[Rfam]
RNA sequence: CCGAGCGCUCCAUACUUCUUUACAUUCCAUAGCUUUCUCAAUACACUAUUGAAUGCAAGGAAGCAUGGAACUUUCAA
Numbered sequence: 001c002c003g004a005g006c007g008c009u010c011c012a013u014a015c016u017u018c019u020u021u022a023c024a025u026u027c028c029a030u031a032g033c034u035u036u037c038u039c040a041a042u043a044c045a046c047u048a049u050u051g052a053a054u055g056c057a058a059g060g061a062a063g064c065a066u067g068g069a070a071c072u073u074u075c076a077a
Stems, first nucleotide, its partner, number of pairs: 007071001009069005015063007023055003027051001029049003
RNA: mir-1 microRNA precursor family
Organism: Anopheles sinensis